[Rfam]
RNA: J750 non-coding RNA (containing SLSL761 and SL783)
RNA sequence: AUUCCCGUCGUAGGCGGACCCUUGGGUGGCGUCGCGGCUGCGCUCGCACAUGGUGUGAGGGCAAUCGAGGACGGGAUUAACUAUGCAACAGGGAAUCUUCCUGGUUGCUCUUU
Numbered sequence: 001a002u003u004c005c006c007g008u009c010g011u012a013g014g015c016g017g018a019c020c021c022u023u024g025g026g027u028g029g030c031g032u033c034g035c036g037g038c039u040g041c042g043c044u045c046g047c048a049c050a051u052g053g054u055g056u057g058a059g060g061g062c063a064a065u066c067g068a069g070g071a072c073g074g075g076a077u078u079a080a081c082u083a084u085g086c087a088a089c090a091g092g093g094a095a096u097c098u099u100c101c102u103g104g105u106u107g108c109u110c111u112u113u
Base pairs, nucleotide, nucleotide: 001077002076003075004074005073007072008071009070013033014032015031016030019026020025035067036066037065039063040062041061043059044058045057046056047055048054049053085108086107087106088105089104091102092101093100